[Rfam]
RNA: U4 spliceosomal RNA
RNA sequence: AGCUUUGCACAGUGGCAGUAUCGUAGCCAAUGAGGUUUAUCUGAGGCACGAUUAUUGUUAAAACUUUUCCCAAUACCCUGUCAUGACGACUUGAAAUAUACUCGGCAUUGGCAAUUUUUGACAGUCUCUAUGGAGA
Dot-bracket structure: ...................(((((.(((.....((.....))..))))))))...........................((((((.(((.(........).))).))).)))............((((....))))
Numbered sequence: 001a002g003c004u005u006u007g008c009a010c011a012g013u014g015g016c017a018g019u020a021u022c023g024u025a026g027c028c029a030a031u032g033a034g035g036u037u038u039a040u041c042u043g044a045g046g047c048a049c050g051a052u053u054a055u056u057g058u059u060a061a062a063a064c065u066u067u068u069c070c071c072a073a074u075a076c077c078c079u080g081u082c083a084u085g086a087c088g089a090c091u092u093g094a095a096a097u098a099u100a101c102u103c104g105g106c107a108u109u110g111g112c113a114a115u116u117u118u119u120g121a122c123a124g125u126c127u128c129u130a131u132g133g134a135g136a
Stems, first nucleotide, its partner, number of pairs: 020052005026047003034042002080112003083108003087104003091100001125136004